Y RNA: a 112-nucleotide RNA from Aotus nancymaae. The match comes from Rfam's covariance-model search (60 bits). The base pairs follow the family's consensus structure, which is taken from published work. It is annotated as a non-coding RNA gene. NCBI's taxonomy places the organism under Eukaryota, Sarcopterygii, Boreoeutheria, Haplorrhini, Aotus. Rfam's curators write: Y RNAs are components of the Ro ribonucleoprotein particle (Ro RNP), in association with Ro60 and La proteins.
[Rfam]
RNA sequence: GGCUGGUCUGAAGGUAGCGAGUUAUCUCAAUUGAUUGUUCACACUCAGUUACAGAUAGAACUCCUUGUUCUACUCUUCCCCCCUUCUCACUACUGCACUUCACUAGUCUUUA
Number, nucleotide and partner (000 for none) at each position: 001g108002g107003c106004u105005g104006g103007u102008c000009u000010g100011a099012a000013g000014g096015u095016a091017g090018c000019g088020a087021g086022u000023u000024a000025u000026c000027u000028c000029a000030a000031u000032u000033g000034a000035u000036u000037g000038u000039u000040c000041a000042c000043a074044c000045u000046c000047a071048g070049u000050u000051a000052c000053a000054g000055a000056u000057a000058g000059a000060a000061c000062u000063c000064c000065u000066u000067g000068u000069u000070c048071u047072a000073c000074u043075c000076u000077u000078c000079c000080c000081c000082c000083c000084u000085u000086c021087u020088c019089a000090c017091u016092a000093c000094u000095g015096c014097a000098c000099u011100u010101c000102a007103c006104u005105a004106g003107u002108c001109u000110u000111u000112a000